[Rfam]
RNA sequence: AGCUCAAUGAUUGCAGCAAAUAUUUUUUGGCAAUAUACGCUAUUCUGAGCAAGUUUGAGGGGCUGACAUUGGAAUAUAUGAGAGCU
Numbered sequence: 001a002g003c004u005c006a007a008u009g010a011u012u013g014c015a016g017c018a019a020a021u022a023u024u025u026u027u028u029g030g031c032a033a034u035a036u037a038c039g040c041u042a043u044u045c046u047g048a049g050c051a052a053g054u055u056u057g058a059g060g061g062g063c064u065g066a067c068a069u070u071g072g073a074a075u076a077u078a079u080g081a082g083a084g085c086u
Base pairs, nucleotide, nucleotide: 001086002085003084004083005082
RNA: Small nucleolar RNA U54